[Rfam]
Nucleotides: 075
Base pairs, nucleotide, nucleotide: 013043015042016041017040018039021075023073024072025071026070027069029037030036047064048063050061051060052059053058
Number, partner (000 for none) and nucleotide at each position: 001000g002000g003000u004000u005000g006000c007000g008000u009000g010000u011000u012000u013043g014000a015042g016041g017040c018039c019000a020000u021075a022000a023073u024072a025071g026070a027069a028000a029037c030036a031000u032000u033000c034000a035000g036030u037029g038000g039018g040017g041016c042015c043013c044000u045000g046000u047064c048063a049000g050061a051060u052059u053058c054000c055000a056000a057000g058053g059052a060051a061050u062000g063048u064047g065000u066000g067000a068000a069027u070026u071025c072024u073023a074000c075021u

Notes:
The family of this 75-nucleotide RNA sequence from Crocodylus porosus is "Mammalian CPEB3 ribozyme". About the family: The mammalian CPEB3 ribozyme is a self cleaving RNA located in the second intron of the CPEB3 gene which belongs to a family of genes regulating messenger RNA polyadenylation.